[Rfam]
RNA sequence: AAUCGUUCACUUCGUUACGGCGGAGCGCAGGCAAGCCAGGCCAUGGAACGGGGACCUGGA
Dot-bracket structure: ...(((((.(((((......)))))..........[[[[[[[...))))).]].]]]]].